[Rfam]
RNA sequence: GCUUCUAUGAUCGAUAACAAACCCAGCUCUCUGAACGAUUCUGAGGAUAGAAAAAAGCUGAGAAGC
Numbered sequence: 001g002c003u004u005c006u007a008u009g010a011u012c013g014a015u016a017a018c019a020a021a022c023c024c025a026g027c028u029c030u031c032u033g034a035a036c037g038a039u040u041c042u043g044a045g046g047a048u049a050g051a052a053a054a055a056a057g058c059u060g061a062g063a064a065g066c
Stems, first nucleotide, its partner, number of pairs: 001066005
Shown here is a 66-nucleotide RNA from Caenorhabditis angaria, a member of the family "Small nucleolar RNA sn3060". A reference for the family is Higa et al. (2002), "Location of 2(')-O-methyl nucleotides in 26S rRNA and methylation guide snoRNAs in Caenorhabditis elegans", Biochem Biophys Res Commun.